The family of this 103-nucleotide sequence from Podarcis lilfordi is "Vault RNA". Rfam describes the family as follows. This family of RNAs are found as part of the enigmatic vault ribonucleoprotein complex. The organism belongs to Podarcis, within Eukaryota. The family's RNA type in Rfam is non-coding RNA gene.
RNA sequence: GAGCCAUCUUAGCCCAGCGGUUCCAUCGAAAAACGCAUAGCUUGGAUCCUGCAAUCGCCCACAGGCAGCAGUUUGAAACCUGAGGGCGCUGACUGGCUUUAAA
Numbered sequence: 001g002a003g004c005c006a007u008c009u010u011a012g013c014c015c016a017g018c019g020g021u022u023c024c025a026u027c028g029a030a031a032a033a034c035g036c037a038u039a040g041c042u043u044g045g046a047u048c049c050u051g052c053a054a055u056c057g058c059c060c061a062c063a064g065g066c067a068g069c070a071g072u073u074u075g076a077a078a079c080c081u082g083a084g085g086g087c088g089c090u091g092a093c094u095g096g097c098u099u100u101a102a103a
Stems, first nucleotide, its partner, number of pairs: 002098005012087004018082003026076004